[Rfam]
This 74-nucleotide RNA from Parnassius apollo belongs to the Rfam family "Mammalian CPEB3 ribozyme".
Rfam links the family to the GO term RNA nuclease activity.
RNA sequence: AUAUUUUUUUAGGGGGUCAUUGUAGCGUGCUCGUCCCGACCCCUGCCAGCCCUUUUCAGGGCUGCAAUUCUACA
Numbered sequence: 001a002u003a004u005u006u007u008u009u010u011a012g013g014g015g016g017u018c019a020u021u022g023u024a025g026c027g028u029g030c031u032c033g034u035c036c037c038g039a040c041c042c043c044u045g046c047c048a049g050c051c052c053u054u055u056u057c058a059g060g061g062c063u064g065c066a067a068u069u070c071u072a073c074a
Base pairs, nucleotide, nucleotide: 013043014042015041016040017039018038021074022073023072024071025037027035047064048063049062050061051060052059053058